[Rfam]
RNA: Potassium channel RNA editing signal
RNA sequence: GUUGGCUAUGGGGACAUGGCACCCGUCACCGUGGGUGGCAAGAUCGUGGGCUCUCUGUGUGCCAUUGCAGGUGUGCUCACCAUCUCUCUGCCUGUGCCUGUCAUUGUCUCUAAC
Numbered sequence: 001g002u003u004g005g006c007u008a009u010g011g012g013g014a015c016a017u018g019g020c021a022c023c024c025g026u027c028a029c030c031g032u033g034g035g036u037g038g039c040a041a042g043a044u045c046g047u048g049g050g051c052u053c054u055c056u057g058u059g060u061g062c063c064a065u066u067g068c069a070g071g072u073g074u075g076c077u078c079a080c081c082a083u084c085u086c087u088c089u090g091c092c093u094g095u096g097c098c099u100g101u102c103a104u105u106g107u108c109u110c111u112a113a114c
Base pairs, nucleotide, nucleotide: 001114002113004111005110008107009106010105011104013102014101015100016099018097021095022094037077038076039075040074049063050062051061